Rfam assigns this 124-nucleotide sequence from Calothrix sp. NIES-3974 to the family "Nitrogen stress-induced RNA 9". By type it is a small RNA.
Nucleotides: 124
Base pairs, nucleotide, nucleotide: 006065008063010061012059013058014057015056017054018053020051021050022049023044024043025042026041027040028039029038066100067099068098069097070096071095075091076090077089078088105124106123107122108121109120110119111118
Number, partner (000 for none) and nucleotide at each position: 001000a002000g003000u004000c005000a006065c007000g008063u009000c010061u011000a012059u013058g014057a015056c016000u017054g018053u019000g020051a021050g022049u023044g024043u025042g026041g027040c028039u029038a030000a031000c032000u033000a034000a035000a036000a037000c038029u039028a040027g041026c042025c043024a044023c045000u046000g047000u048000u049022g050021c051020u052000g053018a054017u055000u056015g057014u058013u059012g060000g061010g062000a063008a064000g065006g066100u067099g068098u069097a070096g071095g072000u073000u074000u075091a076090u077089c078088c079000u080000u081000u082000a083000u084000c085000u086000a087000g088078g089077g090076a091075u092000u093000u094000u095071c096070c097069u098068g099067c100066a101000u102000a103000a104000c105124g106123g107122g108121c109120a110119u111118c112000u113000c114000u115000u116000u117000c118111g119110a120109u121108g122107c123106c124105c